[Rfam]
RNA sequence: GUAUAAAAAAAUCCACGGUUCUCACCGUGGCAAAAUCCAACAUAGCUAAAUAAAAAUAAUCAGGAGGGCUG
Numbered sequence: 001g002u003a004u005a006a007a008a009a010a011a012u013c014c015a016c017g018g019u020u021c022u023c024a025c026c027g028u029g030g031c032a033a034a035a036u037c038c039a040a041c042a043u044a045g046c047u048a049a050a051u052a053a054a055a056a057u058a059a060u061c062a063g064g065a066g067g068g069c070u071g
Stems, first nucleotide, its partner, number of pairs: 013030007

Shown here is a 71-nucleotide RNA from Salmonella enterica, a member of the family "Enterobacterial sRNA STnc480". It is one of the family's seed sequences. It is annotated as a small RNA. The organism belongs to Salmonella enterica subsp. enterica serovar Typhi, within Bacteria.